SAM (S-adenosyl methionine) riboswitch aptamer: a 114-nucleotide sequence from Streptacidiphilus jiangxiensis.
Taxonomically the source falls in Streptacidiphilus (Bacteria, Actinomycetes, Kitasatosporales, Streptomycetaceae).
Pairs were carried over by alignment from the consensus structure, which is taken from published work.
From the family's description: SAM-IV is a mRNA element that regulates gene expression via direct sensing of S-adenosylmethionine (SAM or AdoMet). SAM-IV riboswitches share conserved nucleotide positions with the previously described SAM-I riboswitches sequence analysis and molecular recognition experiments suggest that SAM-I and SAM-IV riboswitches share similar ligand binding sites, but have different scaffolds.
Nucleotides: 114
Base pairs, nucleotide, nucleotide: 001078002077003076004075009038012036013035014034015033016032021030022029039065040064041063044061045060046059048056049055081103082102083101084100086097087096088095089094
Number, partner (000 for none) and nucleotide at each position: 001078g002077g003076u004075c005000a006000c007000g008000a009038g010000u011000g012036u013035c014034a015033g016032c017000g018000u019000c020000a021030a022029g023000c024000c025000c026000u027000g028000g029022c030021u031000g032016g033015c034014u035013g036012a037000a038009c039065g040064g041063c042000a043000a044061c045060c046059c047000u048056c049055c050000c051000a052000c053000g054000c055049g056048g057000c058000g059046g060045g061044g062000u063041g064040c065039u066000c067000c068000a069000g070000g071000u072000g073000a074000g075004g076003a077002c078001c079000c080000g081103g082102c083101g084100g085000a086097g087096c088095c089094g090000a091000g092000a093000a094089c095088g096087g097086c098000g099000c100084c101083c102082g103081c104000a105000a106000g107000c108000g109000c110000g111000a112000g113000c114000u